Description: This 59-nucleotide RNA from Erinaceus europaeus belongs to the Rfam family "Antizyme RNA frameshifting stimulation element". The family's consensus secondary structure is taken from published work. Rfam links the family to the GO term translational frameshifting. It scores 80 bits against the family's covariance model.
RNA sequence: UGAUGGCCCUCACCCACCGCCGAAGAUCCCAGGUGGGCGAGGGGACGGCCAGCGGGAUC
Numbered sequence: 001u002g003a004u005g006g007c008c009c010u011c012a013c014c015c016a017c018c019g020c021c022g023a024a025g026a027u028c029c030c031a032g033g034u035g036g037g038c039g040a041g042g043g044g045a046c047g048g049c050c051a052g053c054g055g056g057a058u059c
Base pairs, nucleotide, nucleotide: 007043008042009041010040011039013037014036015035016034017033018032025059026058027057028056029055030054
The family's RNA type in Rfam is frameshift element.
This family represents a structural element which is found in antizyme mRNA and is known to promote frameshifting. Antizyme genes have have two partially overlapping open reading frames, the second, which encodes the functional protein requires +1 translational frameshifting.
The family has 13 seed sequences and 1,595 matches in Rfam 15.1.
On this family, see Ivanov et al., J Mol Biol 2004: "Identification of a new antizyme mRNA +1 frameshifting stimulatory pseudoknot in a subset of diverse invertebrates and its apparent absence in intermediate species".